[Rfam]
RNA sequence: UCCUGCGCACGGGGCAUACUCCACUUCUUAUUUCCCGUGACGCUUAAAAGGAGGGAUACCCAUCCGCAAGGCUUGCGGUGCAGCAGUGUGGAGACCUGCUGUAAUGCGACCGUUCUUCAUUCGGACGGUUGUGAAUCGGGCGAUGAGCGAACGCUGCGCCUGAUGAAGCCAAAACACUAUGGCA
Numbered sequence: 001u002c003c004u005g006c007g008c009a010c011g012g013g014g015c016a017u018a019c020u021c022c023a024c025u026u027c028u029u030a031u032u033u034c035c036c037g038u039g040a041c042g043c044u045u046a047a048a049a050g051g052a053g054g055g056a057u058a059c060c061c062a063u064c065c066g067c068a069a070g071g072c073u074u075g076c077g078g079u080g081c082a083g084c085a086g087u088g089u090g091g092a093g094a095c096c097u098g099c100u101g102u103a104a105u106g107c108g109a110c111c112g113u114u115c116u117u118c119a120u121u122c123g124g125a126c127g128g129u130u131g132u133g134a135a136u137c138g139g140g141c142g143a144u145g146a147g148c149g150a151a152c153g154c155u156g157c158g159c160c161u162g163a164u165g166a167a168g169c170c171a172a173a174a175c176a177c178u179a180u181g182g183c184a
Base pairs, nucleotide, nucleotide: 008039009038010037011036012035013034014033016031017030018029064078065077066076067075070170071169072168073167074166079103080102081101082100083099084098085097086096088095089094106132107131108130109129110128111127112126113125114124135164136163137162138161139160140159141158142157146155147154148153
The family of this 184-nucleotide sequence is "malK-I RNA". The sequence is in the family's curated seed alignment. Rfam classes the family as a cis-regulatory element.